[Rfam]
RNA sequence: GGUUCGAUGCCACGACGACGGUAGCUAAAAUGGCCUUGACCGACGUUGCUAUGAUUGAACCGAGAGCGAGGAUCUUCUGUUUCGCAUUCUGAUAGGAACCUGUGGAUCCUAAUCAUUUACCGGUCCACGGAGCCGAUUUACUGCGAUUACAUUU
Numbered sequence: 001g002g003u004u005c006g007a008u009g010c011c012a013c014g015a016c017g018a019c020g021g022u023a024g025c026u027a028a029a030a031u032g033g034c035c036u037u038g039a040c041c042g043a044c045g046u047u048g049c050u051a052u053g054a055u056u057g058a059a060c061c062g063a064g065a066g067c068g069a070g071g072a073u074c075u076u077c078u079g080u081u082u083c084g085c086a087u088u089c090u091g092a093u094a095g096g097a098a099c100c101u102g103u104g105g106a107u108c109c110u111a112a113u114c115a116u117u118u119a120c121c122g123g124u125c126c127a128c129g130g131a132g133c134c135g136a137u138u139u140a141c142u143g144c145g146a147u148u149a150c151a152u153u154u
Stems, first nucleotide, its partner, number of pairs: 002060007009052001013048005020041003024034003082146005095134002100130003104126005